The record is a 66-nucleotide RNA sequence from Cricetulus griseus, which matches "Small nucleolar RNA SNORD56" in Rfam.
Nucleotides: 066
Base pairs, nucleotide, nucleotide: 002065003064004063008024009023010022011021
Number, partner (000 for none) and nucleotide at each position: 001000c002065u003064a004063c005000a006000a007000u008024g009023a010022u011021g012000g013000u014000a015000a016000g017000u018000u019000u020000u021011u022010g023009u024008c025000a026000a027000c028000a029000g030000a031000g032000u033000u034000c035000a036000c037000c038000u039000a040000a041000u042000g043000a044000g045000u046000g047000a048000a049000c050000a051000c052000u053000u054000u055000g056000g057000g058000u059000c060000u061000g062000g063004g064003u065002g066000g

Rfam links the family to the GO terms nucleolus and RNA processing. The organism belongs to Cricetulus, within Eukaryota. The family has 7 seed sequences and 796 matches in Rfam 15.1. For this family Rfam cites "Purified box C/D snoRNPs are able to reproduce site-specific 2'-O-methylation of target RNA in vitro" (Galardi et al., Mol Cell Biol, 2002).